Annotation:
The record is a 79-nucleotide sequence from Myotis myotis, which matches "mir-574 microRNA precursor family" in Rfam. Clan: mir-574 microRNA precursor clan.
RNA sequence: GGGCCUGAAGAGAGAGGCAGGGUCUGAUCUGUAGCCUCUGUGGCAGCUAUUGGUCAGCACUUGCCUCUCUUUCUCUCCA
Numbered sequence: 001g002g003g004c005c006u007g008a009a010g011a012g013a014g015a016g017g018c019a020g021g022g023u024c025u026g027a028u029c030u031g032u033a034g035c036c037u038c039u040g041u042g043g044c045a046g047c048u049a050u051u052g053g054u055c056a057g058c059a060c061u062u063g064c065c066u067c068u069c070u071u072u073c074u075c076u077c078c079a
Base pairs, nucleotide, nucleotide: 008071009070010069013068014067015066016065017064018063019062020061024057025056026055027054028053029052032049033048034047035046
The base pairs follow the family's consensus structure, which was predicted with RNAalifold. Rfam links the family to the GO terms RISC complex and miRNA-mediated post-transcriptional gene silencing.